[Rfam]
RNA sequence: CGUGUGGUGUCGUGCAGGAUUGACCUGGCACGAAGAGCGACACGGCCUUCACAGAGGU
Numbered sequence: 001c002g003u004g005u006g007g008u009g010u011c012g013u014g015c016a017g018g019a020u021u022g023a024c025c026u027g028g029c030a031c032g033a034a035g036a037g038c039g040a041c042a043c044g045g046c047c048u049u050c051a052c053a054g055a056g057g058u
Stems, first nucleotide, its partner, number of pairs: 001044005007038002010033006
A member of the RNA family "L31-Gammaproteobacteria ribosomal protein leader" from Duffyella gerundensis, 58 nucleotides long. The base pairs follow the family's consensus structure, which is taken from published work. The organism belongs to Duffyella, within Bacteria. The family is grouped with related families in Rfam's "Ribosomal Protein L31 Leader clan". On this family, see Eckert and Weinberg, BMC Microbiol 2020: "Discovery of 20 novel ribosomal leader candidates in bacteria and archaea". It is annotated as a cis-regulatory leader.